[Rfam]
RNA sequence: UGGCUCAGUUUCCUGGAGGGUGGACUCAGCCUACUCCACCCUUACUCAGCUGAGCCUAGAGUAGAGGGGCCAGGUGUCUACCUGUAUGGGAGAGGUUUUGAAGCAAGGAGCCUUGCCUGGACCGUCCUAGCCUCACAAUU
Dot-bracket structure: .((((((........(((((((((..........))))))))).......)))))).........(((((.(((....(........(((....................)))......).....))).)))))......